[Rfam]
PyrR binding site: a 158-nucleotide sequence from Caldanaerobius fijiensis. The family's RNA type in Rfam is cis-regulatory element. This family represents the PyrR binding site and terminator structure. This RNA structure is found upstream of a variety of genes involved in pyrimidine biosynthesis and transport. The alignment also includes a portion of the antiterminator structure.
RNA sequence: AAGGCCUUUAAAUCAACCCUGAGAGGUUGGCAAGGUGACGGAUCGUAUAAUAAGGUAUAAAAGAUUUUUAUAAAUCUUUUAUAGAGUGUAAGCUUGUAACUAUUCGGAGAUAAUAAAUAUGAAGCCUCUCAGCCGGUUUGGUUGGGAGGCUUUUUUGG
Numbered sequence: 001a002a003g004g005c006c007u008u009u010a011a012a013u014c015a016a017c018c019c020u021g022a023g024a025g026g027u028u029g030g031c032a033a034g035g036u037g038a039c040g041g042a043u044c045g046u047a048u049a050a051u052a053a054g055g056u057a058u059a060a061a062a063g064a065u066u067u068u069u070a071u072a073a074a075u076c077u078u079u080u081a082u083a084g085a086g087u088g089u090a091a092g093c094u095u096g097u098a099a100c101u102a103u104u105c106g107g108a109g110a111u112a113a114u115a116a117a118u119a120u121g122a123a124g125c126c127u128c129u130c131a132g133c134c135g136g137u138u139u140g141g142u143u144g145g146g147a148g149g150c151u152u153u154u155u156u157g158g
Stems, first nucleotide, its partner, number of pairs: 004036005013030006056083012121153014